[Rfam]
RNA: Alphaproteobacterial ar15
RNA sequence: AGCCGGUGCAUUUUGACGACGUCCUGUUGUCCGCGCUGGCUGUUCCCCUCUGAAGGUUAUCGACCUUCACACUUAAUGGGCCUCGGAGCGAUCCGGUGGCCCAUUUUU
Numbered sequence: 001a002g003c004c005g006g007u008g009c010a011u012u013u014u015g016a017c018g019a020c021g022u023c024c025u026g027u028u029g030u031c032c033g034c035g036c037u038g039g040c041u042g043u044u045c046c047c048c049u050c051u052g053a054a055g056g057u058u059a060u061c062g063a064c065c066u067u068c069a070c071a072c073u074u075a076a077u078g079g080g081c082c083u084c085g086g087a088g089c090g091a092u093c094c095g096g097u098g099g100c101c102c103a104u105u106u107u108u
Stems, first nucleotide, its partner, number of pairs: 001041005007035003015031004051069007077103006083096004